The record is a 130-nucleotide RNA sequence from Neomonachus schauinslandi, which matches "U4 spliceosomal RNA" in Rfam. About the family: U4 small nuclear RNA (U4 snRNA) is a component of the major U2-dependent spliceosome. NCBI's taxonomy places the organism under Eukaryota, Sarcopterygii, Theria, Phocidae, Neomonachus. It is annotated as a spliceosomal small nuclear RNA. A search with the family's covariance model found it, with a score of 62 bits.
RNA sequence: AGCUUUGCACAGUGGCAGUGGCAGUAUCGUAGCCAAUGAGGUUUAUCCGAGGCGCAAUUAUUGCUAAUUGAAAAAAUACACUUAGAAUAUGAGAAUACUUUUAUAUUUAGAAUAUGGCAAUAUAUUUAGA
Numbered sequence: 001a002g003c004u005u006u007g008c009a010c011a012g013u014g015g016c017a018g019u020g021g022c023a024g025u026a027u028c029g030u031a032g033c034c035a036a037u038g039a040g041g042u043u044u045a046u047c048c049g050a051g052g053c054g055c056a057a058u059u060a061u062u063g064c065u066a067a068u069u070g071a072a073a074a075a076a077u078a079c080a081c082u083u084a085g086a087a088u089a090u091g092a093g094a095a096u097a098c099u100u101u102u103a104u105a106u107u108u109a110g111a112a113u114a115u116g117g118c119a120a121u122a123u124a125u126u127u128a129g130a
Stems, first nucleotide, its partner, number of pairs: 026058002029055002032053003040048002082110003086107009123130001